RNA sequence: GGCCUAAACUCUAUAUUUAUAGAGCAUGGCUUAAAAUCAUAACGCAUAUUGACCCCGUCAUUCAGGGCAUGCGUUAUGUUAUGCAGGGAAACUUGUAUAUAGGCUUAGGCCU
Numbered sequence: 001g002g003c004c005u006a007a008a009c010u011c012u013a014u015a016u017u018u019a020u021a022g023a024g025c026a027u028g029g030c031u032u033a034a035a036a037u038c039a040u041a042a043c044g045c046a047u048a049u050u051g052a053c054c055c056c057g058u059c060a061u062u063c064a065g066g067g068c069a070u071g072c073g074u075u076a077u078g079u080u081a082u083g084c085a086g087g088g089a090a091a092c093u094u095g096u097a098u099a100u101a102g103g104c105u106u107a108g109g110c111c112u
Stems, first nucleotide, its partner, number of pairs: 001031004009024006038078009051068001053067003057063001080099008101112004
RNA: LOOT RNA